Record summary
Rfam assigns this 78-nucleotide RNA from Schistosoma mansoni to the family "mir-3492 microRNA precursor family". The match comes from Rfam's covariance-model search (55 bits).
[Rfam]
RNA sequence: AGCCUUCUGAAUCCAUGCCGAGAUUUCUCCAGACGCCAAACCAUUAGUGCUGAUGAGACUCCCAAAAUCAAUGGGGCG
Numbered sequence: 001a002g003c004c005u006u007c008u009g010a011a012u013c014c015a016u017g018c019c020g021a022g023a024u025u026u027c028u029c030c031a032g033a034c035g036c037c038a039a040a041c042c043a044u045u046a047g048u049g050c051u052g053a054u055g056a057g058a059c060u061c062c063c064a065a066a067a068u069c070a071a072u073g074g075g076g077c078g
Base pairs, nucleotide, nucleotide: 002077003076004075005074006073008071011068012067016064017063020061021060022059024058025057026056027055030052